Iron response element I: a 35-nucleotide RNA from Chrysochloris asiatica.
It scores 39 bits against the family's covariance model.
Pairs were carried over by alignment from the consensus structure, which is taken from published work.
Taxonomically the source falls in Chrysochloris (Eukaryota, Euteleostomi, Sarcopterygii, Theria).
It is annotated as a cis-regulatory element.
[Rfam]
RNA sequence: GAGUCGCCUGCUUCAACAGUGCUUGAACGGAACCC
Numbered sequence: 001g002a003g004u005c006g007c008c009u010g011c012u013u014c015a016a017c018a019g020u021g022c023u024u025g026a027a028c029g030g031a032a033c034c035c
Base pairs, nucleotide, nucleotide: 001035003033004032007030008029010028012027013026014025015024016023017021